Rfam assigns this 168-nucleotide RNA sequence from Aquamicrobium lusatiense to the family "FMN riboswitch aptamer (RFN element)". The literature on the family includes a 2002 paper in Nucleic Acids Res by Vitreschak et al., "Regulation of riboflavin biosynthesis and transport genes in bacteria by transcriptional and translational attenuation". Its family is annotated with FMN binding in the Gene Ontology. Rfam's curators write: The RFN element is a highly conserved domain that is found frequently in the 5'-untranslated regions of prokaryotic mRNAs that encode for flavin mononucleotide (FMN) biosynthesis and transport proteins. The family's consensus secondary structure is taken from published work. NCBI's taxonomy places the organism under Bacteria, Pseudomonadati, Hyphomicrobiales, Phyllobacteriaceae, Aquamicrobium.

[Rfam]
RNA sequence: CAGCGUUCUCAGGGCGGGGUGAAACUCCCCACCGGCGGUAUGCAGGCGUAGCCUGCGAGCCCGCGAGCGCUUUCCUCCCAGCCAUUUUCUCCGGCCUGUGGGGAAAGGUCAGCAGAUCAGGUGCGAUGCCUGAGCCGACGGUUACAGUCCGGAUGGAAGAGGACAUGU
Number, nucleotide and partner (000 for none) at each position: 001c000002a000003g166004c000005g164006u163007u162008c161009u160010c159011a000012g000013g000014g000015c000016g000017g029018g028019g027020u000021g000022a000023a000024a000025c000026u000027c019028c018029c017030c000031a148032c147033c137034g136035g064036c063037g062038g061039u000040a000041u000042g000043c000044a000045g000046g000047c000048g000049u000050a000051g000052c000053c000054u000055g000056c000057g000058a000059g135060c134061c038062c037063g036064c035065g000066a000067g113068c112069g000070c000071u000072u000073u000074c000075c000076u000077c000078c000079c000080a000081g000082c000083c000084a000085u000086u000087u000088u000089c000090u000091c000092c000093g000094g000095c000096c000097u000098g000099u000100g000101g000102g000103g000104a000105a000106a000107g000108g000109u000110c000111a000112g068113c067114a000115g000116a000117u133118c132119a131120g130121g129122u000123g000124c000125g000126a000127u000128g000129c121130c120131u119132g118133a117134g060135c059136c034137g033138a000139c151140g150141g149142u000143u000144a000145c000146a000147g032148u031149c141150c140151g139152g000153a000154u000155g000156g000157a000158a000159g010160a009161g008162g007163a006164c005165a000166u003167g000168u000